[Rfam]
RNA sequence: ACCAGGAUCCCGUGCGGCGUCUAUCUUGUGAACUCCCCCAGGGCAGGAAUGCAGCAAGGGUCAACGAGCUCUAGCGGGUGCGCGGGGUCCCCUUAAUUC
Numbered sequence: 001a002c003c004a005g006g007a008u009c010c011c012g013u014g015c016g017g018c019g020u021c022u023a024u025c026u027u028g029u030g031a032a033c034u035c036c037c038c039c040a041g042g043g044c045a046g047g048a049a050u051g052c053a054g055c056a057a058g059g060g061u062c063a064a065c066g067a068g069c070u071c072u073a074g075c076g077g078g079u080g081c082g083c084g085g086g087g088u089c090c091c092c093u094u095a096a097u098u099c
Base pairs, nucleotide, nucleotide: 004093005092006091009086010085011084012083013082014081015078018076019075020074025068026067027066028065029064035060036059037058043052044051045050
Rfam assigns this 99-nucleotide RNA from Corynebacterium occultum to the family "Bacterial small signal recognition particle RNA". The match comes from Rfam's covariance-model search (64 bits). Its Rfam clan is "SRP clan".